[Rfam]
RNA: TPP riboswitch aptamer (THI element)
Organism: Arthrobacter sp. FB24
RNA sequence: GGGGAGUACCGCGGGAGCCCGCCGCAGCUGUCACAAAGCUGCAGGGCUGAGAGGGCGUCAGAGCCGACCGCUUGACCUGAUCCGGUUAGUACCGGCGUAGGGAAGGAUGACAAUGACCCC
Numbered sequence: 001g002g003g004g005a006g007u008a009c010c011g012c013g014g015g016a017g018c019c020c021g022c023c024g025c026a027g028c029u030g031u032c033a034c035a036a037a038g039c040u041g042c043a044g045g046g047c048u049g050a051g052a053g054g055g056c057g058u059c060a061g062a063g064c065c066g067a068c069c070g071c072u073u074g075a076c077c078u079g080a081u082c083c084g085g086u087u088a089g090u091a092c093c094g095g096c097g098u099a100g101g102g103a104a105g106g107a108u109g110a111c112a113a114u115g116a117c118c119c120c
Stems, first nucleotide, its partner, number of pairs: 006108002009105001011071004017047004054065003076101004082095004